About this RNA:
The record is a 66-nucleotide sequence from Octopus sinensis, which matches "mir-2 microRNA precursor family" in Rfam. Pairs were carried over by alignment from the consensus structure, which was predicted with PFOLD. For this family Rfam cites "microRNAs: tiny regulators with great potential" (Ambros, Cell, 2001).
[Rfam]
RNA sequence: UAUCUCAUCAAAUAACUGGGAUAUGCGGUUAUAAUGACGUAUCACAGCUAGCUUUGAUGAGCUUCA
Dot-bracket structure: ....((((((((((.(((.((..(((............))))).))).))..))))))))......